Rfam assigns this 70-nucleotide RNA from Sipha flava to the family "mir-2 microRNA precursor family". Gene Ontology terms of the family: miRNA-mediated post-transcriptional gene silencing and RISC complex. On this family, see Lee and Ambros, Science 2001: "An extensive class of small RNAs in Caenorhabditis elegans".
Nucleotides: 070
Base pairs, nucleotide, nucleotide: 006063007062008061009060010059011058012057014055015054016053018051019050020049021048022047025046026045027044
Number, partner (000 for none) and nucleotide at each position: 001000u002000g003000g004000c005000c006063c007062g008061u009060c010059a011058a012057a013000a014055u015054g016053g017000a018051u019050g020049u021048g022047a023000a024000g025046u026045g027044u028000g029000u030000u031000u032000u033000u034000u035000u036000u037000a038000c039000u040000g041000u042000u043000c044027a045026u046025a047022u048021c049020a050019c051018a052000g053016c054015c055014a056000c057012u058011u059010u060009g061008a062007u063006g064000a065000g066000c067000c068000u069000a070000u